[Rfam]
RNA sequence: CCUUUGGAGUGUGAUACCAGACGUUAGUAGAAUGUUGAAUUUUCAACGAAUUUUCAACUUCGAGAACGCACACGAGGAAGAAGGAA
Numbered sequence: 001c002c003u004u005u006g007g008a009g010u011g012u013g014a015u016a017c018c019a020g021a022c023g024u025u026a027g028u029a030g031a032a033u034g035u036u037g038a039a040u041u042u043u044c045a046a047c048g049a050a051u052u053u054u055c056a057a058c059u060u061c062g063a064g065a066a067c068g069c070a071c072a073c074g075a076g077g078a079a080g081a082a083g084g085a086a
Stems, first nucleotide, its partner, number of pairs: 001084005009073005022068003030061003034058006
Shown here is an 86-nucleotide sequence, a member of the family "RAGATH-18 RNA". It is annotated as a small RNA.